[Rfam]
RNA: Lysine riboswitch aptamer
Organism: Vibrio aerogenes
RNA sequence: UCCAGCGGAAGAGGAGCACUGCCCAGGCAGAUGUUUUGUAGAGCCUCAACUCUAAUACAAAACAUUCAGGGGGAGCAGUGCCGAGAUGAGUCAAAAUUGUGGAUUUGGCUUGUCGGUUGAAUGGGCUGAAUCCCUUCAACUGUCAUUAGUAUCACACUAAUGAAGAGCUUCUGAGGUC
Dot-bracket structure: .....((((((....(((((((.(.....((((((((.....................))))))))......).)))))))...(((((((((((........)))))))))))(((((((.(((......)))))))))).(((((((.......)))))))....)))))).....